[Rfam]
The family of this 367-nucleotide sequence from Parasphingopyxis marina is "Bacterial RNase P class A". The family's RNA type in Rfam is ribozyme. The base pairs follow the family's consensus structure, which is taken from published work. Rfam's curators write: Ribonuclease P (RNase P) is a ubiquitous endoribonuclease, found in archaea, bacteria and eukarya as well as chloroplasts and mitochondria. NCBI's taxonomy places the organism under Bacteria, Pseudomonadati, Sphingomonadales, Parasphingopyxidaceae, Parasphingopyxis. The match comes from Rfam's covariance-model search (301 bits).

RNA sequence: CCAGAGGGCUGGGCGGCCGCGUGGGCUUGCUCACGAGGAAAGUCCGGGCUCCACGGAACCACGGUGCCGGGUAAUGCCCGGCGGGGGCGACCCCAGGGAAAGUGCCACAGAGAAUAGUCCGCCAACCUCGCUUGCGAGGCGGCAAGGGUGAAAGGGUGCGGUAAGAGCGCACCGCGCGCGCCAGCAAUGGCCGCGGCACGGCAAACCCCACCGGGAGCAAGACCGAAUAGGGGCGGCAUAUGGGCCUGGUCCGGCUCGUCGCCCGGGUUGGUUGCUUGAGGGCGGGAGCAAUCCCGUUCCUAGAGGAAUGGUCGCACAGGCGGAGCAAUUCGCUGGACAAAACCCGGCUUACAGGCCCUCUGGCACU
Numbered sequence: 001c002c003a004g005a006g007g008g009c010u011g012g013g014c015g016g017c018c019g020c021g022u023g024g025g026c027u028u029g030c031u032c033a034c035g036a037g038g039a040a041a042g043u044c045c046g047g048g049c050u051c052c053a054c055g056g057a058a059c060c061a062c063g064g065u066g067c068c069g070g071g072u073a074a075u076g077c078c079c080g081g082c083g084g085g086g087g088c089g090a091c092c093c094c095a096g097g098g099a100a101a102g103u104g105c106c107a108c109a110g111a112g113a114a115u116a117g118u119c120c121g122c123c124a125a126c127c128u129c130g131c132u133u134g135c136g137a138g139g140c141g142g143c144a145a146g147g148g149u150g151a152a153a154g155g156g157u158g159c160g161g162u163a164a165g166a167g168c169g170c171a172c173c174g175c176g177c178g179c180g181c182c183a184g185c186a187a188u189g190g191c192c193g194c195g196g197c198a199c200g201g202c203a204a205a206c207c208c209c210a211c212c213g214g215g216a217g218c219a220a221g222a223c224c225g226a227a228u229a230g231g232g233g234c235g236g237c238a239u240a241u242g243g244g245c246c247u248g249g250u251c252c253g254g255c256u257c258g259u260c261g262c263c264c265g266g267g268u269u270g271g272u273u274g275c276u277u278g279a280g281g282g283c284g285g286g287a288g289c290a291a292u293c294c295c296g297u298u299c300c301u302a303g304a305g306g307a308a309u310g311g312u313c314g315c316a317c318a319g320g321c322g323g324a325g326c327a328a329u330u331c332g333c334u335g336g337a338c339a340a341a342a343c344c345c346g347g348c349u350u351a352c353a354g355g356c357c358c359u360c361u362g363g364c365a366c367u
Base pairs, nucleotide, nucleotide: 001363002362003361004360005359006358007357008356009355010354011352013315014314015313016312017311018310020035021034022033023032024031025030040350041349042348044347045346046345047344048343049217050216051215052214058250059249060248062213063212064211065210066209067081068080069079070078071077082096083094084093085092086091097208098207102206103205104202105201106200119147120146121143122142123141126139127138128137129136130135155173156172157171158170159169160168174197175195176194177193178192180191181190182189183188221273222272223271224270231264232263233262234261235260236259242257243256244255245254246253280299281298282297283296284295285294286293287292